Annotation:
Shown here is a 227-nucleotide RNA from Paenibacillus rhizosphaerae, a member of the family "c-di-AMP riboswitch aptamer (ydaO/yuaA leader)".

[Rfam]
RNA sequence: GAACCAGUCUCGCUGAGUCUCCCGCAUGGGAGAACGGGGGAACCAAUACUGGAGCGGGUCAUGAUAGACCGGAAGCGGUCCCGUGCUCGCAAGCGUAUUUGAUUUCUUUUUUGGGUCUCUGGGGUGAAUUGAACGGCUUUACGCCAUGAGCGUAAGGACGCGAAUAGGGCGGCUCUCUUUCGCCCGAACCCGACAGCUAACCCCGUAAGCGGAUAAAGAGAGGUACC
Numbered sequence: 001g002a003a004c005c006a007g008u009c010u011c012g013c014u015g016a017g018u019c020u021c022c023c024g025c026a027u028g029g030g031a032g033a034a035c036g037g038g039g040g041a042a043c044c045a046a047u048a049c050u051g052g053a054g055c056g057g058g059u060c061a062u063g064a065u066a067g068a069c070c071g072g073a074a075g076c077g078g079u080c081c082c083g084u085g086c087u088c089g090c091a092a093g094c095g096u097a098u099u100u101g102a103u104u105u106c107u108u109u110u111u112u113g114g115g116u117c118u119c120u121g122g123g124g125u126g127a128a129u130u131g132a133a134c135g136g137c138u139u140u141a142c143g144c145c146a147u148g149a150g151c152g153u154a155a156g157g158a159c160g161c162g163a164a165u166a167g168g169g170c171g172g173c174u175c176u177c178u179u180u181c182g183c184c185c186g187a188a189c190c191c192g193a194c195a196g197c198u199a200a201c202c203c204c205g206u207a208a209g210c211g212g213a214u215a216a217a218g219a220g221a222g223g224u225a226c227c
Stems, first nucleotide, its partner, number of pairs: 011211004018033006034206006044121002122191003130164001167185004